[Rfam]
RNA sequence: GGCAGAUGAUGUCUGUUUUCACAAUGGUCUUCAGAAGCCCACUAUGGGCACUGCUGAAUGCCACUUGGUAAAACCGAUGCUGGAAG
Numbered sequence: 001g002g003c004a005g006a007u008g009a010u011g012u013c014u015g016u017u018u019u020c021a022c023a024a025u026g027g028u029c030u031u032c033a034g035a036a037g038c039c040c041a042c043u044a045u046g047g048g049c050a051c052u053g054c055u056g057a058a059u060g061c062c063a064c065u066u067g068g069u070a071a072a073a074c075c076g077a078u079g080c081u082g083g084a085a086g
Stems, first nucleotide, its partner, number of pairs: 001081004